[Rfam]
RNA sequence: CCCAGAGGUAUUGAUUGGUGAGUGUCAACAUUCGUGUUGAACCCAUUGUCCUUGCACCAACCUACGCAGAUGCGUAGGUUUUUUUU
Numbered sequence: 001c002c003c004a005g006a007g008g009u010a011u012u013g014a015u016u017g018g019u020g021a022g023u024g025u026c027a028a029c030a031u032u033c034g035u036g037u038u039g040a041a042c043c044c045a046u047u048g049u050c051c052u053u054g055c056a057c058c059a060a061c062c063u064a065c066g067c068a069g070a071u072g073c074g075u076a077g078g079u080u081u082u083u084u085u086u
Stems, first nucleotide, its partner, number of pairs: 016059005025040005060079008